[Rfam]
Notes:
A member of the RNA family "mir-9243 microRNA precursor family" from Eptesicus fuscus, 81 nucleotides long. Rfam links the family to the GO terms RISC complex and miRNA-mediated post-transcriptional gene silencing. Rfam 15.1 lists 31 matches to the family in 4 species. Rfam's curators put it in the seed alignment.
RNA sequence: AUGCAUGAAUUCAUGCAUCGGGCUUCUAGUAUAGAUUUAUAUAGAGAGACUAGAGGCCCAGUGCAAGAAAUUUGUGCACAG
Numbered sequence: 001a002u003g004c005a006u007g008a009a010u011u012c013a014u015g016c017a018u019c020g021g022g023c024u025u026c027u028a029g030u031a032u033a034g035a036u037u038u039a040u041a042u043a044g045a046g047a048g049a050c051u052a053g054a055g056g057c058c059c060a061g062u063g064c065a066a067g068a069a070a071u072u073u074g075u076g077c078a079c080a081g
Stems, first nucleotide, its partner, number of pairs: 002078008010069003014065005020059011032047001